[Rfam]
RNA sequence: AUGGAUCUUCGGGGUAAGGUGAAAUUCCUGACCGGCGGUGAUAGUCAUCCUCCAGAUGGCUUUAGCCCGCGACUCGUUAUUCUGUAAGAAUAACGACUGAUUUGGUGAAAUUCCAAGGCCGACGGUAAAGUCCGGAUGGGAGAAGAUCAAU
Numbered sequence: 001a002u003g004g005a006u007c008u009u010c011g012g013g014g015u016a017a018g019g020u021g022a023a024a025u026u027c028c029u030g031a032c033c034g035g036c037g038g039u040g041a042u043a044g045u046c047a048u049c050c051u052c053c054a055g056a057u058g059g060c061u062u063u064a065g066c067c068c069g070c071g072a073c074u075c076g077u078u079a080u081u082c083u084g085u086a087a088g089a090a091u092a093a094c095g096a097c098u099g100a101u102u103u104g105g106u107g108a109a110a111u112u113c114c115a116a117g118g119c120c121g122a123c124g125g126u127a128a129a130g131u132c133c134g135g136a137u138g139g140g141a142g143a144a145g146a147u148c149a150a151u
Base pairs, nucleotide, nucleotide: 004148005147006146007145008144009143010142017029018028019027031131032130033121034120035070036069037068038067065119066118074096075095101117102116103115104114105113123134124133125132
Record summary: Shown here is a 151-nucleotide RNA from Fontibacillus phaseoli, a member of the family "FMN riboswitch aptamer (RFN element)". The match comes from Rfam's covariance-model search (118 bits). Lineage of the source: Bacteria > Bacillati > Bacilli > Paenibacillaceae > Fontibacillus. Its family is annotated with FMN binding in the Gene Ontology.